RNA sequence: UCAGCAAUGGGUAUUCUUAAUGCAAUAAUACUUGAUCAGAUGUGAUAUUAUUGCUUGAGAAUACACGUUGCUUU
Number, nucleotide and partner (000 for none) at each position: 001u000002c000003a072004g071005c000006a000007a068008u067009g066010g000011g064012u063013a062014u061015u060016c059017u058018u057019a056020a055021u000022g000023c000024a052025a051026u050027a049028a048029u047030a046031c044032u000033u000034g000035a000036u000037c000038a000039g000040a000041u000042g000043u000044g031045a000046u030047a029048u028049u027050a026051u025052u024053g000054c000055u020056u019057g018058a017059g016060a015061a014062u013063a012064c011065a000066c009067g008068u007069u000070g000071c004072u003073u000074u000
RNA: mir-137 microRNA precursor family